[Rfam]
RNA: A. fumigatus sRNA Afu_309
Organism: Fusarium longipes
RNA sequence: UCUCUUCAAGCAAACACGGAUCUGUGCCUAGCGAUCCCCUGCCCUUCGGGGUCAGGGUCGAUUGCUUUGCAGCUCGAUAACUUAUAAGGAGCCAUCAACUUGUUAUGGUGUCAAUUUUCCUAUCGACAGGUCCAAGAGUAACAGUUGCUUAAGUUGCUUUAUUCGCUGCUCUUCGGAGCAGCUUGAGUAUCGAGGCUUCUGCAGCGAGACGCUAUAUUCCACCCCCCUUUUCCGAGACCGUUGGUUAGUGAGGUUGGGGAAAACCAUGGCCUACCUACAUAU
Numbered sequence: 001u002c003u004c005u006u007c008a009a010g011c012a013a014a015c016a017c018g019g020a021u022c023u024g025u026g027c028c029u030a031g032c033g034a035u036c037c038c039c040u041g042c043c044c045u046u047c048g049g050g051g052u053c054a055g056g057g058u059c060g061a062u063u064g065c066u067u068u069g070c071a072g073c074u075c076g077a078u079a080a081c082u083u084a085u086a087a088g089g090a091g092c093c094a095u096c097a098a099c100u101u102g103u104u105a106u107g108g109u110g111u112c113a114a115u116u117u118u119c120c121u122a123u124c125g126a127c128a129g130g131u132c133c134a135a136g137a138g139u140a141a142c143a144g145u146u147g148c149u150u151a152a153g154u155u156g157c158u159u160u161a162u163u164c165g166c167u168g169c170u171c172u173u174c175g176g177a178g179c180a181g182c183u184u185g186a187g188u189a190u191c192g193a194g195g196c197u198u199c200u201g202c203a204g205c206g207a208g209a210c211g212c213u214a215u216a217u218u219c220c221a222c223c224c225c226c227c228u229u230u231u232c233c234g235a236g237a238c239c240g241u242u243g244g245u246u247a248g249u250g251a252g253g254u255u256g257g258g259g260a261a262a263a264c265c266a267u268g269g270c271c272u273a274c275c276u277a278c279a280u281a282u
Base pairs, nucleotide, nucleotide: 018133019132020131021130022129023128024127025126026070027069030066031065033063034062035061036060037057038056039055040054041053042051043050044049078125080123083122084121088112089111091109092108093107146203147202148201152200153199156196158187159186160185161184165182166181167180168179169178170177171176208275211270212269213268214267215266224259225258226257227256232253233252236246237245238244239243